Record summary: Shown here is a 120-nucleotide RNA sequence from Volvox carteri, a member of the family "U5 spliceosomal RNA". NCBI's taxonomy places the organism under Eukaryota, Viridiplantae, core chlorophytes, Volvocaceae, Volvox carteri. By type it is a spliceosomal small nuclear RNA. Rfam describes the family as follows. U5 RNA is a component of both types of known spliceosome.

RNA sequence: AUGCUCUGAAUUGACUGCGAUUCUUACAUCUCUUUCGCCUUUGACUAAAGAGAUCAGCGUAAUCAAUUCUACAAGGCGCCUCUACUAUAUACUUGCAGCGCUUUUGCGCGUCCAAGGCGA
Numbered sequence: 001a002u003g004c005u006c007u008g009a010a011u012u013g014a015c016u017g018c019g020a021u022u023c024u025u026a027c028a029u030c031u032c033u034u035u036c037g038c039c040u041u042u043g044a045c046u047a048a049a050g051a052g053a054u055c056a057g058c059g060u061a062a063u064c065a066a067u068u069c070u071a072c073a074a075g076g077c078g079c080c081u082c083u084a085c086u087a088u089a090u091a092c093u094u095g096c097a098g099c100g101c102u103u104u105u106g107c108g109c110g111u112c113c114a115a116g117g118c119g120a
Base pairs, nucleotide, nucleotide: 003079004078006076009068010067011066012065013064014063016061017060018059019058028054029053030052031051032050033049034048035047099119100118101117102116103115104114